The record is a 283-nucleotide part of an RNA from Coccidioides posadasii, which matches "Eukaryotic large subunit ribosomal RNA" in Rfam. The source organism's lineage runs through Eukaryota, Opisthokonta, Onygenaceae, Coccidioides and Coccidioides posadasii.
RNA sequence: AAGUCUAACAUUCAUAUGAGUGUUCAGAUAUCAAACCCAUGCAUGCAGUGAAAGUAAAUAAAGAUAGAAGUCUGCAAGAAUGCACUAUUGACUGAUCCUGAAGUCUUUAAAUAAAUUUGAGUAAGAGUGUGGCUGUUGGAAUCUGAAAGAUAAUAAACUAUAUCUGAAUAGAGUGAAGUCAGAGAAAACUCUAGUGAAGACUUACAGUAAUUCUGAUGUGUAAAUCAAUCAUCAAAUUUAAGUAUAGAGAUGAAAGGCUAAUUAAAUCAUCUGAUAGCUGGUU
Numbered sequence: 001a002a003g004u005c006u007a008a009c010a011u012u013c014a015u016a017u018g019a020g021u022g023u024u025c026a027g028a029u030a031u032c033a034a035a036c037c038c039a040u041g042c043a044u045g046c047a048g049u050g051a052a053a054g055u056a057a058a059u060a061a062a063g064a065u066a067g068a069a070g071u072c073u074g075c076a077a078g079a080a081u082g083c084a085c086u087a088u089u090g091a092c093u094g095a096u097c098c099u100g101a102a103g104u105c106u107u108u109a110a111a112u113a114a115a116u117u118u119g120a121g122u123a124a125g126a127g128u129g130u131g132g133c134u135g136u137u138g139g140a141a142u143c144u145g146a147a148a149g150a151u152a153a154u155a156a157a158c159u160a161u162a163u164c165u166g167a168a169u170a171g172a173g174u175g176a177a178g179u180c181a182g183a184g185a186a187a188a189c190u191c192u193a194g195u196g197a198a199g200a201c202u203u204a205c206a207g208u209a210a211u212u213c214u215g216a217u218g219u220g221u222a223a224a225u226c227a228a229u230c231a232u233c234a235a236a237u238u239u240a241a242g243u244a245u246a247g248a249g250a251u252g253a254a255a256g257g258c259u260a261a262u263u264a265a266a267u268c269a270u271c272u273g274a275u276a277g278c279u280g281g282u283u
Base pairs, nucleotide, nucleotide: 005139006138007137008136009135010134012132013131014130015129016128017127020044021043022042027037029035048055049054063089064088065087066086067085070081071080091122092121093119094118095117096115103108142281143280145278149271150270151269153267154266158247159246160245161244162243163242165240166239167238168237169235171203172202173201174200178195179194181192182191183190184189207232208231210229212228215226216225249259251257